[Rfam]
Nucleotides: 078
Stems, first nucleotide, its partner, number of pairs: 001076004006071004012065004017060003022055009
Number, partner (000 for none) and nucleotide at each position: 001076a002075g003074g004073g005000g006071g007070a008069g009068g010000u011000u012065g013064g014063c015062g016000a017060c018059a019058u020000c021000a022055c023054u024053g025052g026051u027050a028049c029048u030047g031000a032000g033000g034000u035000a036000a037000u038000g039000g040000c041000u042000g043000u044000c045000c046000a047030c048029a049028g050027u051026a052025c053024c054023a055022g056000a057000c058019a059018u060017g061000c062015c063014g064013c065012c066000c067000u068009c069008c070007u071006c072000c073004c074003c075002c076001u077000a078000c
About this RNA:
A member of the RNA family "mir-9186 microRNA precursor family" from Eptesicus fuscus, 78 nucleotides long. The base pairs follow the family's consensus structure, which was predicted with RNAalifold. Rfam 15.1 lists 143 matches to the family in 7 species. The source organism's lineage runs through Eukaryota, Metazoa, Teleostomi, Laurasiatheria and Eptesicus.